[Rfam]
RNA sequence: AGCAAACAAGCUUAUUAUCUUCGUAUAAUCCCGGGAAUCGGCCUGGGAGUCUCUACAUGGUCACCGUAAAUGACCUGGCUACGAUGUGAAAGAGAAUUCGG
Number, nucleotide and partner (000 for none) at each position: 001a000002g000003c000004a000005a000006a000007c000008a000009a000010g000011c000012u000013u000014a000015u000016u000017a000018u000019c086020u000021u084022c083023g082024u081025a080026u000027a000028a000029u048030c047031c046032c045033g044034g043035g042036a000037a000038u000039c000040g000041g000042c035043c034044u033045g032046g031047g030048a029049g000050u000051c000052u000053c000054u000055a000056c000057a000058u000059g075060g074061u073062c072063a071064c000065c000066g000067u000068a000069a000070a000071u063072g062073a061074c060075c059076u000077g000078g000079c000080u025081a024082c023083g022084a021085u000086g019087u000088g000089a000090a000091a000092g000093a000094g000095a000096a000097u000098u000099c000100g000101g000

Rfam assigns this 101-nucleotide RNA sequence from Paenibacillus sp. CAA11 to the family "Purine riboswitch aptamer". Lineage of the source: Bacteria > Bacillati > Bacillota > Bacilli > Paenibacillus. From the family's description: Riboswitches are metabolite binding domains within certain messenger RNAs that serve as precision sensors for their corresponding targets. Allosteric rearrangement of mRNA structure is mediated by ligand binding, and this results in modulation of gene expression. Clan: Purine riboswitches. A search with the family's covariance model found it, with a score of 70 bits.